[Rfam]
Notes
Shown here is a 147-nucleotide sequence from Drosophila persimilis, a member of the family "Small nucleolar RNA psi18S-1377". The base pairs follow the family's consensus structure, which was predicted with RNAalifold. The family has 15 seed sequences and 113 matches in Rfam 15.1. Rfam classes the family as an H/ACA-box small nucleolar RNA. The source organism's lineage runs through Eukaryota, Eumetazoa, Ecdysozoa, Pancrustacea and Sophophora. From the family's description: psi18S-1377 is a member of the H/ACA class of snoRNA. This family is responsible for guiding the modification of uridines 1377 and 1279 to pseudouridine in Drosophila 18S rRNA.

RNA sequence: CCGUUUUUGUGUUAUUCGCUGAAUGCCCAUCUUGGCCUAGUGAUUGUCAAACAGAACGCACAUUGAAGACCAGGCAUCUGCUCUCACUCCACAAUGUUAUGUCCAUUAUAUCCAGGACAACUACAUUACUAUUAGCGUGCCACAACA
Numbered sequence: 001c002c003g004u005u006u007u008u009g010u011g012u013u014a015u016u017c018g019c020u021g022a023a024u025g026c027c028c029a030u031c032u033u034g035g036c037c038u039a040g041u042g043a044u045u046g047u048c049a050a051a052c053a054g055a056a057c058g059c060a061c062a063u064u065g066a067a068g069a070c071c072a073g074g075c076a077u078c079u080g081c082u083c084u085c086a087c088u089c090c091a092c093a094a095u096g097u098u099a100u101g102u103c104c105a106u107u108a109u110a111u112c113c114a115g116g117a118c119a120a121c122u123a124c125a126u127u128a129c130u131a132u133u134a135g136c137g138u139g140c141c142a143c144a145a146c147a
Stems, first nucleotide, its partner, number of pairs: 002058006010049002016043006093127005100119004